[Rfam]
A member of the RNA family "Alphaproteobacteria transfer-messenger RNA" from Sphingomonas desiccabilis, 341 nucleotides long. On this family, see Laslett et al., Nucleic Acids Res 2002: "BRUCE: a program for the detection of transfer-messenger RNA genes in nucleotide sequences". The match comes from Rfam's covariance-model search (216 bits). Rfam's curators write: Bacterial tmRNA, also known as 10Sa RNA or SsrA, is named for its dual tRNA and mRNA-like properties. Its role is to liberate the mRNA from a stalled ribosome. To accomplish this part of the tmRNA is used as a reading frame that ends in a translation stop signal. The broken mRNA is replaced in the ribosome by the tmRNA and translation of the tmRNA leads to addition of a proteolysis tag to the incomplete protein enabling recognition by a protease. Recently a number of permuted tmRNA genes have been found encoded in two parts. tmRNAs have been identified in eubacteria and some chloroplasts but are absent from archaeal and eukaryote nuclear genomes. It is annotated as a non-coding RNA gene. The source organism's lineage runs through Bacteria, Pseudomonadota, Sphingomonadales, Sphingomonadaceae and Sphingomonas.

RNA sequence: AGGCUUUAAUUGCCGAAACCGAGUGGCUAUAUGCGCUUCUGCCGGCUUCGGCCGGAUAUGGCGAUAAACUGCGGCGUAGACUAGGCGCAGCGGACCCGGGGGCAGUACCCGGCGGCUCCACCAGAACCAGCCUUCCAGGCCGGUCCUGACGGGGCCGAACCAGGAUCGACGUGUGUUGAAAGGCGCUGUUUUCGCUCGGAAUGGGACCACCGCAACGGCCCAUUACACAAGUGCCAACGAUAACGAAGCACUCGCUAUUGCGGCGUAACCCCAAGGCCUAACGGCCUAAGGUUACUCUAAAAUGCGCGGUUGGACCGCACCGGGCAACAGAAGCGGAUUCC
Numbered sequence: 001a002g003g004c005u006u007u008a009a010u011u012g013c014c015g016a017a018a019c020c021g022a023g024u025g026g027c028u029a030u031a032u033g034c035g036c037u038u039c040u041g042c043c044g045g046c047u048u049c050g051g052c053c054g055g056a057u058a059u060g061g062c063g064a065u066a067a068a069c070u071g072c073g074g075c076g077u078a079g080a081c082u083a084g085g086c087g088c089a090g091c092g093g094a095c096c097c098g099g100g101g102g103c104a105g106u107a108c109c110c111g112g113c114g115g116c117u118c119c120a121c122c123a124g125a126a127c128c129a130g131c132c133u134u135c136c137a138g139g140c141c142g143g144u145c146c147u148g149a150c151g152g153g154g155c156c157g158a159a160c161c162a163g164g165a166u167c168g169a170c171g172u173g174u175g176u177u178g179a180a181a182g183g184c185g186c187u188g189u190u191u192u193c194g195c196u197c198g199g200a201a202u203g204g205g206a207c208c209a210c211c212g213c214a215a216c217g218g219c220c221c222a223u224u225a226c227a228c229a230a231g232u233g234c235c236a237a238c239g240a241u242a243a244c245g246a247a248g249c250a251c252u253c254g255c256u257a258u259u260g261c262g263g264c265g266u267a268a269c270c271c272c273a274a275g276g277c278c279u280a281a282c283g284g285c286c287u288a289a290g291g292u293u294a295c296u297c298u299a300a301a302a303u304g305c306g307c308g309g310u311u312g313g314a315c316c317g318c319a320c321c322g323g324g325c326a327a328c329a330g331a332a333g334c335g336g337a338u339u340c341c
Stems, first nucleotide, its partner, number of pairs: 042055004060196005071189007086175003090172003096112005113157007197212003202222003207218002307322004313339002316336001